Shown here is a 71-nucleotide sequence from Anser cygnoides, a member of the family "mir-124 microRNA precursor family".
RNA sequence: CACAUUUCGUGGUCACCGCGGGCCUUGGUUUAGUGUCACACAAUUCAGGCACGCGGUGAAUGCCAAAGAGG
Numbered sequence: 001c002a003c004a005u006u007u008c009g010u011g012g013u014c015a016c017c018g019c020g021g022g023c024c025u026u027g028g029u030u031u032a033g034u035g036u037c038a039c040a041c042a043a044u045u046c047a048g049g050c051a052c053g054c055g056g057u058g059a060a061u062g063c064c065a066a067a068g069a070g071g
Stems, first nucleotide, its partner, number of pairs: 005067002009063003013059004018054003023049003027045004
The family's consensus secondary structure was predicted with PFOLD. The literature on the family includes a 2002 paper in Curr Biol by Lagos-Quintana et al., "Identification of tissue-specific microRNAs from mouse". Its family is annotated with RISC complex and miRNA-mediated post-transcriptional gene silencing in the Gene Ontology.